[Rfam]
RNA sequence: AGAGGUAAUAAGUUUGAGGCCACAGCAGAAACGCUCAUGGUGUGGCCUGUCAGAUUCCAAUGAAAUCUGUGAAUUCUGCU
Numbered sequence: 001a002g003a004g005g006u007a008a009u010a011a012g013u014u015u016g017a018g019g020c021c022a023c024a025g026c027a028g029a030a031a032c033g034c035u036c037a038u039g040g041u042g043u044g045g046c047c048u049g050u051c052a053g054a055u056u057c058c059a060a061u062g063a064a065a066u067c068u069g070u071g072a073a074u075u076c077u078g079c080u
Base pairs, nucleotide, nucleotide: 018047019046020045021044024080025079026078027077028076029075030074031043032042033041051069052068053067054066055065056064
Dot-bracket structure: .................[[[[..((((((((((.......)))]]]]...((((((.......))))))....)))))))
Mammalian CPEB3 ribozyme: an 80-nucleotide RNA from Alligator sinensis. The mammalian CPEB3 ribozyme is a self cleaving RNA located in the second intron of the CPEB3 gene which belongs to a family of genes regulating messenger RNA polyadenylation. This ribozyme is highly conserved and found only in mammals. The CPEB3 ribozyme is structurally and biochemically related to the human hepatitis delta virus (HDV) ribozyme and the HDV ribozyme is proposed to have arisen from the human transcriptome. There is currently only one other known self cleaving ribozyme in mammals, the CoTC motif.